[Rfam]
RNA sequence: GUUUAAAACCCAGUUACCAAGGUAAUUCGGAGUUCUGACCUUUCGAAAGAAAGCGUCUUUUACGAUAAAUUUUGGAUUAGUUCAGUCGGGGUUUCCGGCUGAACAAA
Numbered sequence: 001g002u003u004u005a006a007a008a009c010c011c012a013g014u015u016a017c018c019a020a021g022g023u024a025a026u027u028c029g030g031a032g033u034u035c036u037g038a039c040c041u042u043u044c045g046a047a048a049g050a051a052a053g054c055g056u057c058u059u060u061u062a063c064g065a066u067a068a069a070u071u072u073u074g075g076a077u078u079a080g081u082u083c084a085g086u087c088g089g090g091g092u093u094u095c096c097g098g099c100u101g102a103a104c105a106a107a
Stems, first nucleotide, its partner, number of pairs: 007034002009030002013026005037057003040053005082105001086101001088099001090096002